Rfam assigns this 90-nucleotide sequence from Paenibacillus macerans to the family "c-di-GMP-I riboswitch aptamer". The family's consensus secondary structure is taken from published work. The match comes from Rfam's covariance-model search (68 bits). The source organism's lineage runs through Bacteria, Bacillota, Caryophanales, Paenibacillaceae and Paenibacillus.

RNA sequence: GGAUGUAAAUCGCAAACCUGGCCGAAAGGCAGGGACGCAAAGCCACGGAUCUAAAAUUCUUAACGGAAUCAUGACCGCCGGGAUGCCAAC
Numbered sequence: 001g002g003a004u005g006u007a008a009a010u011c012g013c014a015a016a017c018c019u020g021g022c023c024g025a026a027a028g029g030c031a032g033g034g035a036c037g038c039a040a041a042g043c044c045a046c047g048g049a050u051c052u053a054a055a056a057u058u059c060u061u062a063a064c065g066g067a068a069u070c071a072u073g074a075c076c077g078c079c080g081g082g083a084u085g086c087c088a089a090c
Base pairs, nucleotide, nucleotide: 012038013037017033018032019031020030022029023028041084043082044081046080047079048078050074051073056069057068058067059066